[Rfam]
RNA sequence: UGCGACACGCAUCAAACGGUAGUUCCCAAUCCAGGAGCUACUUCACCAUAUUCCAAAUUC
Numbered sequence: 001u002g003c004g005a006c007a008c009g010c011a012u013c014a015a016a017c018g019g020u021a022g023u024u025c026c027c028a029a030u031c032c033a034g035g036a037g038c039u040a041c042u043u044c045a046c047c048a049u050a051u052u053c054c055a056a057a058u059u060c
Stems, first nucleotide, its partner, number of pairs: 018042009
A member of the RNA family "Plastid-psbN 5UTR RNA" from Papaver somniferum, 60 nucleotides long.
Pairs were carried over by alignment from the consensus structure, which was predicted with LocARNA.
It is annotated as a cis-regulatory element.
Rfam's curators write: Plastid psbN is a non-coding RNA (ncRNA) recognised in plastids.
NCBI's taxonomy places the organism under Eukaryota, Streptophytina, Spermatophyta, Magnoliopsida, Papaver.